[Rfam]
RNA sequence: UGGACAGAUUAUUGUAUUCGACUGUAUUCAUGUGUGAAACAGGGGAUUACACUAUUUUUAAAUGGAAAGUGAAUCAAUUAACAUAACAAACGCCU
Number, nucleotide and partner (000 for none) at each position: 001u000002g094003g093004a000005c000006a000007g000008a000009u089010u088011a000012u086013u085014g084015u083016a000017u081018u080019c000020g079021a078022c000023u076024g075025u000026a074027u073028u072029c071030a070031u069032g000033u064034g063035u062036g058037a057038a056039a055040c000041a053042g052043g000044g000045g000046a000047u000048u000049a000050c000051a000052c042053u041054a000055u039056u038057u037058u036059u000060a000061a000062a035063u034064g033065g000066a000067a000068a000069g031070u030071g029072a028073a027074u026075c024076a023077a000078u021079u020080a018081a017082c000083a015084u014085a013086a012087c000088a010089a009090a000091c000092g000093c003094c002095u000

This 95-nucleotide RNA from Nicotiana sylvestris belongs to the Rfam family "MIR6152 microRNA precursor family". A search with the family's covariance model found it, with a score of 83 bits. Rfam links the family to the GO terms miRNA-mediated post-transcriptional gene silencing and RISC complex.